Mammalian CPEB3 ribozyme: a 75-nucleotide sequence from Crocodylus porosus. Taxonomically the source falls in Crocodylus (Eukaryota, Deuterostomia, Teleostomi, Euteleostomi). Pairs were carried over by alignment from the consensus structure, which is taken from published work. The match comes from Rfam's covariance-model search (39 bits).
[Rfam]
RNA sequence: GUUGCAAGUUUGAGCCGACAGCAGAAGUGCUUAUGGCACAGCUUGUCAGAUUGCAACAAGUCUGCAAAUUCUGCU
Numbered sequence: 001g002u003u004g005c006a007a008g009u010u011u012g013a014g015c016c017g018a019c020a021g022c023a024g025a026a027g028u029g030c031u032u033a034u035g036g037c038a039c040a041g042c043u044u045g046u047c048a049g050a051u052u053g054c055a056a057c058a059a060g061u062c063u064g065c066a067a068a069u070u071c072u073g074c075u
Stems, first nucleotide, its partner, number of pairs: 013043002016041001020075007027039003047064006